[Rfam]
The record is a 132-nucleotide RNA from Pseudolysinimonas yzui, which matches "FMN riboswitch aptamer (RFN element)" in Rfam. Its family is annotated with FMN binding in the Gene Ontology.
RNA sequence: CACGUGCUCCAGGGGCGGUGAAAUCCCGCACCGGCGGUCAUAGUCCGCGAACUCCUCGCCUGCGAAGGCGGGGAGCCGAUCCGGUGGAAAUCCGGAACCGACGGUUAAAGUCCGGAUGGGAGGAUGCACGCU
Number, nucleotide and partner (000 for none) at each position: 001c000002a000003c130004g129005u128006g127007c126008u124009c123010c122011a000012g000013g000014g000015g000016c028017g027018g026019u000020g000021a000022a000023a000024u000025c000026c018027c017028g016029c000030a111031c110032c100033g099034g048035c047036g046037g045038u000039c000040a000041u000042a000043g098044u097045c037046c036047g035048c034049g000050a000051a000052c075053u074054c073055c072056u000057c000058g000059c000060c000061u000062g000063c000064g000065a000066a000067g000068g000069c000070g000071g000072g055073g054074a053075g052076c000077c000078g000079a000080u096081c095082c094083g093084g092085u000086g000087g000088a000089a000090a000091u000092c084093c083094g082095g081096a080097a044098c043099c033100g032101a000102c114103g113104g112105u000106u000107a000108a000109a000110g031111u030112c104113c103114g102115g000116a000117u000118g000119g000120g000121a000122g010123g009124a008125u000126g007127c006128a005129c004130g003131c000132u000